[Rfam]
RNA sequence: GUCUCUGAUGAUGAUCAAACAUAUAACUUUCGUUCUUCCGAGGAUUAACUUCCGUUGUGGAAAAAGUUAUUGGAGACCUGAACUGAAGAGAC
Numbered sequence: 001g002u003c004u005c006u007g008a009u010g011a012u013g014a015u016c017a018a019a020c021a022u023a024u025a026a027c028u029u030u031c032g033u034u035c036u037u038c039c040g041a042g043g044a045u046u047a048a049c050u051u052c053c054g055u056u057g058u059g060g061a062a063a064a065a066g067u068u069a070u071u072g073g074a075g076a077c078c079u080g081a082a083c084u085g086a087a088g089a090g091a092c
Base pairs, nucleotide, nucleotide: 003090004089005088006087
RNA: Small nucleolar RNA Z159/U59